[Rfam]
RNA sequence: UUGUGUGCGGUGAUGAUACAAUUUGUGGACUAGAGUUUCUGAUCUGGGGAUUUAGACCUCCAUUGGUUGAAGACAAACCCUUGGCUGUCUGAGCACAA
Numbered sequence: 001u002u003g004u005g006u007g008c009g010g011u012g013a014u015g016a017u018a019c020a021a022u023u024u025g026u027g028g029a030c031u032a033g034a035g036u037u038u039c040u041g042a043u044c045u046g047g048g049g050a051u052u053u054a055g056a057c058c059u060c061c062a063u064u065g066g067u068u069g070a071a072g073a074c075a076a077a078c079c080c081u082u083g084g085c086u087g088u089c090u091g092a093g094c095a096c097a098a
Stems, first nucleotide, its partner, number of pairs: 004097005036072004043065001045062004

Shown here is a 98-nucleotide RNA sequence from Anisodus acutangulus, a member of the family "Small nucleolar RNA Z157/R69/R10". Rfam classes the family as a C/D-box small nucleolar RNA. Clan: SNORD52 clan. The family has 10 seed sequences and 836 matches in Rfam 15.1. The family's consensus secondary structure was predicted with PFOLD. The organism belongs to Anisodus, within Eukaryota. For this family Rfam cites "The high diversity of snoRNAs in plants: identification and comparative study of 120 snoRNA genes from Oryza sativa" (Chen et al., Nucleic Acids Res, 2003). A search with the family's covariance model found it, with a score of 68 bits.